[Rfam]
RNA sequence: UAAUUUGUUUGAAGCAAGUCCUCAUUUGAUUAUGGUAGAUUCACACUUGACUGCUCAUAAUCACUCACUAAUACUUGAACAAUAACUUUUUUAGUUUUUAAUUGGAGU
Numbered sequence: 001u002a003a004u005u006u007g008u009u010u011g012a013a014g015c016a017a018g019u020c021c022u023c024a025u026u027u028g029a030u031u032a033u034g035g036u037a038g039a040u041u042c043a044c045a046c047u048u049g050a051c052u053g054c055u056c057a058u059a060a061u062c063a064c065u066c067a068c069u070a071a072u073a074c075u076u077g078a079a080c081a082a083u084a085a086c087u088u089u090u091u092u093a094g095u096u097u098u099u100a101a102u103u104g105g106a107g108u
Stems, first nucleotide, its partner, number of pairs: 004106004008101002012097001014095002018091001027085001029083003
RNA: MIR480 microRNA precursor family
Organism: Populus alba